[Rfam]
RNA: mir-46/mir-47/mir-281 microRNA precursor family
RNA sequence: CGAAUGGCAAAAUGAAGAGAGCUAUCCAUCGACAGUCAAGUUCUUAAAAUAUACUGUCAUGGAAUUGCUCUUUUUGUAUAGUAUUCG
Numbered sequence: 001c002g003a004a005u006g007g008c009a010a011a012a013u014g015a016a017g018a019g020a021g022c023u024a025u026c027c028a029u030c031g032a033c034a035g036u037c038a039a040g041u042u043c044u045u046a047a048a049a050u051a052u053a054c055u056g057u058c059a060u061g062g063a064a065u066u067g068c069u070c071u072u073u074u075u076g077u078a079u080a081g082u083a084u085u086c087g
Stems, first nucleotide, its partner, number of pairs: 014075005020069003025063004031058003035054002